[Rfam]
RNA sequence: AAGCCUGGAGUGAGAAGCAGGGUCUGAUCUGUAGCCUUCAUGGCAGCUGUUGAUUAGCUCUUGCCUCUCUUUUUCUCUCGG
Numbered sequence: 001a002a003g004c005c006u007g008g009a010g011u012g013a014g015a016a017g018c019a020g021g022g023u024c025u026g027a028u029c030u031g032u033a034g035c036c037u038u039c040a041u042g043g044c045a046g047c048u049g050u051u052g053a054u055u056a057g058c059u060c061u062u063g064c065c066u067c068u069c070u071u072u073u074u075c076u077c078u079c080g081g
Stems, first nucleotide, its partner, number of pairs: 008073003012069004017064004022059001024057006032049004
RNA: mir-574 microRNA precursor family
Organism: Pipistrellus kuhlii